Source information:
The record is a 312-nucleotide sequence from Mesorhizobium amorphae, which matches "Mesorhizobail RNA 7" in Rfam. The organism belongs to Mesorhizobium amorphae, within Bacteria.

RNA sequence: GAUUUCGCAAUGCCGCCAUGAGUGUCGCCUGUUCGCGUCGAAGGAUCGAUCUGUUUUCGAUCAUAUAUCAGUUUCGGUAUAGCAAUCAUCAAAGAUCGCAUUUGACAGUUAUGUCAAAGGGACACACCCUUCGCGCGUCCUGGGGCGUGCCAGUCGAUGACGAGGAAAAUCGUAUCGAUUGAAAUCUGCGUCCCGGGGCCGAUUGGGAGGAUACCGGAGAUCGAUAGACGACAGCAGCGCGCUUGCGCUUCUGCUCGACUGCGCGGCCCGCGAAGCCCCGAGGUGUCGCGUCCAUCAACCAGGGAGAGUUAC
Numbered sequence: 001g002a003u004u005u006c007g008c009a010a011u012g013c014c015g016c017c018a019u020g021a022g023u024g025u026c027g028c029c030u031g032u033u034c035g036c037g038u039c040g041a042a043g044g045a046u047c048g049a050u051c052u053g054u055u056u057u058c059g060a061u062c063a064u065a066u067a068u069c070a071g072u073u074u075c076g077g078u079a080u081a082g083c084a085a086u087c088a089u090c091a092a093a094g095a096u097c098g099c100a101u102u103u104g105a106c107a108g109u110u111a112u113g114u115c116a117a118a119g120g121g122a123c124a125c126a127c128c129c130u131u132c133g134c135g136c137g138u139c140c141u142g143g144g145g146c147g148u149g150c151c152a153g154u155c156g157a158u159g160a161c162g163a164g165g166a167a168a169a170u171c172g173u174a175u176c177g178a179u180u181g182a183a184a185u186c187u188g189c190g191u192c193c194c195g196g197g198g199c200c201g202a203u204u205g206g207g208a209g210g211a212u213a214c215c216g217g218a219g220a221u222c223g224a225u226a227g228a229c230g231a232c233a234g235c236a237g238c239g240c241g242c243u244u245g246c247g248c249u250u251c252u253g254c255u256c257g258a259c260u261g262c263g264c265g266g267c268c269c270g271c272g273a274a275g276c277c278c279c280g281a282g283g284u285g286u287c288g289c290g291u292c293c294a295u296c297a298a299c300c301a302g303g304g305a306g307a308g309u310u311a312c
Stems, first nucleotide, its partner, number of pairs: 018054002021052001024051001073122003082115001084110003089105005134149006151181006161172003189275001190199003205269003229261002234244001247254002276304003280300001282296004

Record summary: The family's consensus secondary structure was predicted with RNAfold. Rfam's curators write: Existence predicted via genome wide comparisons with 4 related strains. Analysed further by deep sequencing and Northern blot under various stress conditions. Expressed only under rare growth conditions: symbiosis, micro-oxygen stress, and alkali stress.